[Rfam]
Nucleotides: 091
Base pairs, nucleotide, nucleotide: 002018003017004016005015035091036090037089038088039087041060042059043058044057045056046055047054061080062079063078064077065076066075067074
Number, partner (000 for none) and nucleotide at each position: 001000u002018u003017c004016g005015c006000a007000g008000g009000u010000c011000c012000c013000c014000c015005g016004c017003g018002a019000u020000c021000u022000g023000c024000u025000a026000a027000a028000c029000a030000c031000a032000u033000c034000g035091c036090g037089c038088g039087c040000a041060g042059g043058u044057c045056c046055g047054g048000g049000u050000g051000g052000a053000a054047c055046c056045g057044g058043g059042c060041c061080c062079g063078c064077c065076c066075u067074c068000c069000a070000u071000c072000g073000u074067g075066a076065g077064g078063g079062u080061g081000u082000c083000c084000c085000g086000g087039g088038c089037g090036c091035g